The record is a 131-nucleotide sequence from Leptobrachium leishanense, which matches "Small nucleolar RNA SNORA68" in Rfam. Pairs were carried over by alignment from the consensus structure, which was predicted with PFOLD. By type it is an H/ACA-box small nucleolar RNA. A search with the family's covariance model found it, with a score of 90 bits. Its family is annotated with RNA processing and nucleolus in the Gene Ontology. From the family's description: U68 is a member of the H/ACA class of small nucleolar RNAs (snoRNAs) which act as guides in the the modification of uridines to pseudouridines.

RNA sequence: UGUGCACACAAAACCCAAAGAUCGUUGUGUCCCCUGACGAUGAUCUUGUCUGUUGUGCAGAAAGUAAUCGCACCUUGUCGCCUUUCUUGAGCUGAAGUGCUCAUGGAAGUGAAACAGAAGGGGUGACACUC
Numbered sequence: 001u002g003u004g005c006a007c008a009c010a011a012a013a014c015c016c017a018a019a020g021a022u023c024g025u026u027g028u029g030u031c032c033c034c035u036g037a038c039g040a041u042g043a044u045c046u047u048g049u050c051u052g053u054u055g056u057g058c059a060g061a062a063a064g065u066a067a068u069c070g071c072a073c074c075u076u077g078u079c080g081c082c083u084u085u086c087u088u089g090a091g092c093u094g095a096a097g098u099g100c101u102c103a104u105g106g107a108a109g110u111g112a113a114a115c116a117g118a119a120g121g122g123g124u125g126a127c128a129c130u131c
Stems, first nucleotide, its partner, number of pairs: 003059006020045009070124002073121004082109005088103005